[Rfam]
RNA sequence: AGAGAGGGAGGGCAGAAAGACAGGGAUGAGGUUGAGCAUGGGAUGGAUUCAUCAACAUCACAGCAUAUCAAACCUGGAGAGAUCGAAUUGAAGACAUGUUCAUUCAUACUGUUGUUGUUCCUCCCAUGCACUGCCUCUUCCCUGGCUCCAUCUCUUUUCCUUAA
Numbered sequence: 001a002g003a004g005a006g007g008g009a010g011g012g013c014a015g016a017a018a019g020a021c022a023g024g025g026a027u028g029a030g031g032u033u034g035a036g037c038a039u040g041g042g043a044u045g046g047a048u049u050c051a052u053c054a055a056c057a058u059c060a061c062a063g064c065a066u067a068u069c070a071a072a073c074c075u076g077g078a079g080a081g082a083u084c085g086a087a088u089u090g091a092a093g094a095c096a097u098g099u100u101c102a103u104u105c106a107u108a109c110u111g112u113u114g115u116u117g118u119u120c121c122u123c124c125c126a127u128g129c130a131c132u133g134c135c136u137c138u139u140c141c142c143u144g145g146c147u148c149c150a151u152c153u154c155u156u157u158u159c160c161u162u163a164a
Base pairs, nucleotide, nucleotide: 018147019146021144022143023142024141025140026139029136030135031134032133034131036129037128038127039126040125042124046120047119
The family of this 164-nucleotide RNA sequence from Dioscorea zingiberensis is "MIR408 microRNA precursor family". It scores 78 bits against the family's covariance model. Taxonomically the source falls in Dioscorea (Eukaryota, Viridiplantae, Streptophytina, Embryophyta).